[Rfam]
Yersinia sRNA 209: a 46-nucleotide RNA from Yersinia ruckeri.
It scores 61 bits against the family's covariance model.
The source organism's lineage runs through Bacteria, Pseudomonadota, Enterobacterales, Yersiniaceae and Yersinia.
The literature on the family includes a 2016 paper in Proc Natl Acad Sci U S A by Righetti et al., "Temperature-responsive in vitro RNA structurome of Yersinia pseudotuberculosis".
The pairing is the family consensus, mapped onto this sequence.
By type it is a small RNA.
From the family's description: The sRNA was identified by and is confirmed to have a stable secondary structure by using genome-wide structure probing at different temperatures. The function is unknown.

Nucleotides: 046
Stems, first nucleotide, its partner, number of pairs: 001030003007024005
Number, partner (000 for none) and nucleotide at each position: 001030a002029u003028c004000a005000g006000a007024c008023g009022g010021c011020a012000g013000c014000a015000a016000u017000g018000a019000a020011u021010g022009c023008c024007g025000a026000a027000a028003g029002a030001u031000a032000g033000c034000a035000a036000a037000a038000g039000a040000a041000a042000u043000c044000a045000g046000u